[Rfam]
RNA: Bacterial RNase P class A
RNA sequence: UGAGUUGGAUAAGUGAUCGCGGCUGCAUUUUUGCAGGUGAGGAAAGUCCGGGCUUCACAGGGCAGGAUGCCGGAUAACGUCCGGUGGAGGCGACUCCCAGGCCAGUGCAACAGAAAUAUACCGCCAUAUUCGUAUGGUAAGGGUGGAAAGGCGAGGUAAGAGCUCACCGCUGCCAUGGUAACAUGACAGGCUCUGUAAACCCCAUCCGAAGCAAGACCAAAUAUAGCUUCUGCAAAGGAGCUUGUGGAAUGAUACAGUUGCCCGCUGCAUUCCAGGUAGGUUGCUUGAGUUUUAUGGUAACAUAAAUCCUAGAUAGAUGAUCACUCUCGACAUAACCCGGCUUACAGUCCAACUCAUUCC
Numbered sequence: 001u002g003a004g005u006u007g008g009a010u011a012a013g014u015g016a017u018c019g020c021g022g023c024u025g026c027a028u029u030u031u032u033g034c035a036g037g038u039g040a041g042g043a044a045a046g047u048c049c050g051g052g053c054u055u056c057a058c059a060g061g062g063c064a065g066g067a068u069g070c071c072g073g074a075u076a077a078c079g080u081c082c083g084g085u086g087g088a089g090g091c092g093a094c095u096c097c098c099a100g101g102c103c104a105g106u107g108c109a110a111c112a113g114a115a116a117u118a119u120a121c122c123g124c125c126a127u128a129u130u131c132g133u134a135u136g137g138u139a140a141g142g143g144u145g146g147a148a149a150g151g152c153g154a155g156g157u158a159a160g161a162g163c164u165c166a167c168c169g170c171u172g173c174c175a176u177g178g179u180a181a182c183a184u185g186a187c188a189g190g191c192u193c194u195g196u197a198a199a200c201c202c203c204a205u206c207c208g209a210a211g212c213a214a215g216a217c218c219a220a221a222u223a224u225a226g227c228u229u230c231u232g233c234a235a236a237g238g239a240g241c242u243u244g245u246g247g248a249a250u251g252a253u254a255c256a257g258u259u260g261c262c263c264g265c266u267g268c269a270u271u272c273c274a275g276g277u278a279g280g281u282u283g284c285u286u287g288a289g290u291u292u293u294a295u296g297g298u299a300a301c302a303u304a305a306a307u308c309c310u311a312g313a314u315a316g317a318u319g320a321u322c323a324c325u326c327u328c329g330a331c332a333u334a335a336c337c338c339g340g341c342u343u344a345c346a347g348u349c350c351a352a353c354u355c356a357u358u359c360c
Stems, first nucleotide, its partner, number of pairs: 001356010012325007020039002023036005044343003048340005053211004060263004065207005070084005085099001086097004100202002105200002107196003121142002123138006150168002153165003169191001170189003174185004215282004246273006255267004289308001291306006